Shown here is a 76-nucleotide sequence from Flavobacterium johnsoniae, a member of the family "Flavo-1 RNA". It is one of the family's seed sequences. The source organism's lineage runs through Bacteria, Pseudomonadati, Bacteroidota, Flavobacterium and Flavobacterium johnsoniae. The family's consensus secondary structure is taken from published work. By type it is a small RNA.
[Rfam]
RNA sequence: UCCUAGCCCUGAUGGAAGCGGCAUCCUUUUGCGCCGGGGUUCGGCGUAAAAGAUAUAGCGGACAGCAGGAAAUAGC
Number, nucleotide and partner (000 for none) at each position: 001u000002c000003c000004u000005a000006g000007c000008c000009c068010u067011g066012a000013u064014g063015g000016a000017a000018g059019c058020g000021g000022c000023a054024u053025c052026c000027u000028u000029u049030u048031g047032c046033g045034c044035c043036g042037g000038g000039g000040u000041u000042c036043g035044g034045c033046g032047u031048a030049a029050a000051a000052g025053a024054u023055a000056u000057a000058g019059c018060g000061g000062a000063c014064a013065g000066c011067a010068g009069g000070a000071a000072a000073u000074a000075g000076c000